Annotation: The family of this 53-nucleotide RNA from Rhizobium deserti is "COG3860 RNA".
RNA sequence: CGGUCAGCAGUCACCGAGGCAUCGCCGUCCCGAAUGGGAAGCUAAACCUGCUA
Number, nucleotide and partner (000 for none) at each position: 001c016002g015003g014004u013005c000006a000007g000008c000009a000010g000011u000012c000013a004014c003015c002016g001017a000018g000019g000020c000021a000022u000023c000024g000025c000026c000027g000028u039029c038030c037031c036032g000033a000034a000035u000036g031037g030038g029039a028040a000041g000042c000043u000044a000045a000046a000047c000048c000049u000050g000051c000052u000053a000

Source information:
The family's RNA type in Rfam is cis-regulatory element. The organism belongs to Rhizobium, within Bacteria.